[Rfam]
RNA: permuted transfer-messenger RNA
RNA sequence: CGUCGUAAUACGGCAUACACGAUUGGCGGCAAGACAGGGGUGCGAUUCCCCUCGCCUCCACCAAGACCCCACCGGCCGGUGCUUCGGCGCCGCGAUCUGCCCCAGCGACAGAUCGAAAUCUGAACGGUGCGGUGGGGUCCUGAUGGGGGCGAUCAGUUUCGAUUGGCGCUGUGACUGGAAGACGCGACGUAGGGUGACCUCCUGGCUUAGGCUUCGGCCGAGGUAAUUGGGUCAACGCUGACAAAUGUCAACGACAACGACGCUCCCGUGAUGGAGCAACUGCUGGCGGCCUAA
Numbered sequence: 001c002g003u004c005g006u007a008a009u010a011c012g013g014c015a016u017a018c019a020c021g022a023u024u025g026g027c028g029g030c031a032a033g034a035c036a037g038g039g040g041u042g043c044g045a046u047u048c049c050c051c052u053c054g055c056c057u058c059c060a061c062c063a064a065g066a067c068c069c070c071a072c073c074g075g076c077c078g079g080u081g082c083u084u085c086g087g088c089g090c091c092g093c094g095a096u097c098u099g100c101c102c103c104a105g106c107g108a109c110a111g112a113u114c115g116a117a118a119u120c121u122g123a124a125c126g127g128u129g130c131g132g133u134g135g136g137g138u139c140c141u142g143a144u145g146g147g148g149g150c151g152a153u154c155a156g157u158u159u160c161g162a163u164u165g166g167c168g169c170u171g172u173g174a175c176u177g178g179a180a181g182a183c184g185c186g187a188c189g190u191a192g193g194g195u196g197a198c199c200u201c202c203u204g205g206c207u208u209a210g211g212c213u214u215c216g217g218c219c220g221a222g223g224u225a226a227u228u229g230g231g232u233c234a235a236c237g238c239u240g241a242c243a244a245a246u247g248u249c250a251a252c253g254a255c256a257a258c259g260a261c262g263c264u265c266c267c268g269u270g271a272u273g274g275a276g277c278a279a280c281u282g283c284u285g286g287c288g289g290c291c292u293a294a
Stems, first nucleotide, its partner, number of pairs: 001189005016177002026169003030165003036052005053151007191200001